[Rfam]
RNA sequence: GCCGUUGAAUUCCGGGCGCGGAUCGCCCAUAUUCCGACUGCCGGGGCGACCCGGCUAUGAUCGUAGAUGUCGGGUGGAAUAAGCGUUUAGGACGCGGGUUCAAUUCCCGCCGUCUCCACCAUGAGCCCGUUCGACGAGAGACCCUCGCGCGGCGGGCUGAUGAUGGGGACGACUUGGGUUCGACUAGGCGUGAUAAAGGCUCAGCGGCGAUUGGGCGAGCUACGGCCCUGACAGUGCAAACACACAAAUGCCAACGACAACGUUGACAUGGGUGAGGUUCGCCUCGCGGCGUAACCAUCCGGGGCUCGGGAAAGCCUAGCAACAGAAACGGCACCU
Numbered sequence: 001g002c003c004g005u006u007g008a009a010u011u012c013c014g015g016g017c018g019c020g021g022a023u024c025g026c027c028c029a030u031a032u033u034c035c036g037a038c039u040g041c042c043g044g045g046g047c048g049a050c051c052c053g054g055c056u057a058u059g060a061u062c063g064u065a066g067a068u069g070u071c072g073g074g075u076g077g078a079a080u081a082a083g084c085g086u087u088u089a090g091g092a093c094g095c096g097g098g099u100u101c102a103a104u105u106c107c108c109g110c111c112g113u114c115u116c117c118a119c120c121a122u123g124a125g126c127c128c129g130u131u132c133g134a135c136g137a138g139a140g141a142c143c144c145u146c147g148c149g150c151g152g153c154g155g156g157c158u159g160a161u162g163a164u165g166g167g168g169a170c171g172a173c174u175u176g177g178g179u180u181c182g183a184c185u186a187g188g189c190g191u192g193a194u195a196a197a198g199g200c201u202c203a204g205c206g207g208c209g210a211u212u213g214g215g216c217g218a219g220c221u222a223c224g225g226c227c228c229u230g231a232c233a234g235u236g237c238a239a240a241c242a243c244a245c246a247a248a249u250g251c252c253a254a255c256g257a258c259a260a261c262g263u264u265g266a267c268a269u270g271g272g273u274g275a276g277g278u279u280c281g282c283c284u285c286g287c288g289g290c291g292u293a294a295c296c297a298u299c300c301g302g303g304g305c306u307c308g309g310g311a312a313a314g315c316c317u318a319g320c321a322a323c324a325g326a327a328a329c330g331g332c333a334c335c336u
Stems, first nucleotide, its partner, number of pairs: 040055005059212005069205002072202004084190003088186003094110005111171007213228004219237002222235002302317004309332001
A member of the RNA family "Alphaproteobacteria transfer-messenger RNA" from Enterovirga rhinocerotis, 336 nucleotides long. For this family Rfam cites "Phylogenetic analysis of tmRNA secondary structure" (Williams and Bartel, RNA, 1996). The family's RNA type in Rfam is non-coding RNA gene. The base pairs follow the family's consensus structure, which is taken from published work. About the family: Bacterial tmRNA, also known as 10Sa RNA or SsrA, is named for its dual tRNA and mRNA-like properties.